[Rfam]
RNA sequence: CUCACUAAUACCCACGGGCAAGCCCGCGGGGUUGCAGUAGAAAUACUGUAGCCCAUGGUGAGUAGCCUAAGUGCUUCGGCACUACGUUAAGAGAGAAUAUAUAGUCACCUGCGGAUGUAGUACCAAGUCUGCAGCUCUGAGGUCAGUGAUUAAACAGUCCUGUGGUAUAGGGGCAGUGUUGCUGAUAUAAAACCUCUUAUUAACAUUGGCGAUGGUACACCAAC
Numbered sequence: 001c002u003c004a005c006u007a008a009u010a011c012c013c014a015c016g017g018g019c020a021a022g023c024c025c026g027c028g029g030g031g032u033u034g035c036a037g038u039a040g041a042a043a044u045a046c047u048g049u050a051g052c053c054c055a056u057g058g059u060g061a062g063u064a065g066c067c068u069a070a071g072u073g074c075u076u077c078g079g080c081a082c083u084a085c086g087u088u089a090a091g092a093g094a095g096a097a098u099a100u101a102u103a104g105u106c107a108c109c110u111g112c113g114g115a116u117g118u119a120g121u122a123c124c125a126a127g128u129c130u131g132c133a134g135c136u137c138u139g140a141g142g143u144c145a146g147u148g149a150u151u152a153a154a155c156a157g158u159c160c161u162g163u164g165g166u167a168u169a170g171g172g173g174c175a176g177u178g179u180u181g182c183u184g185a186u187a188u189a190a191a192a193c194c195u196c197u198u199a200u201u202a203a204c205a206u207u208g209g210c211g212a213u214g215g216u217a218c219a220c221c222a223a224c
Stems, first nucleotide, its partner, number of pairs: 001062007010032002012029002016024002033050007065210003069206001070083005086204005091198005105140002109134008117220002124214002142186009154177002157174005
Rfam assigns this 224-nucleotide RNA sequence from Oribacterium sp. KHPX15 to the family "HNH endonuclease-associated RNA and ORF (HEARO) RNA". The match comes from Rfam's covariance-model search (119 bits).